[Rfam]
RNA sequence: AGUUGGAUGAUGAGAAAAAUCAGACGGAUUCCCAUUGAUAUUGUUAAUACAUGAUAUCACAACCAUCUACUUCUGACAACU
Numbered sequence: 001a002g003u004u005g006g007a008u009g010a011u012g013a014g015a016a017a018a019a020u021c022a023g024a025c026g027g028a029u030u031c032c033c034a035u036u037g038a039u040a041u042u043g044u045u046a047a048u049a050c051a052u053g054a055u056a057u058c059a060c061a062a063c064c065a066u067c068u069a070c071u072u073c074u075g076a077c078a079a080c081u
Stems, first nucleotide, its partner, number of pairs: 001081005
RNA: Small nucleolar RNA R12
Organism: Senna tora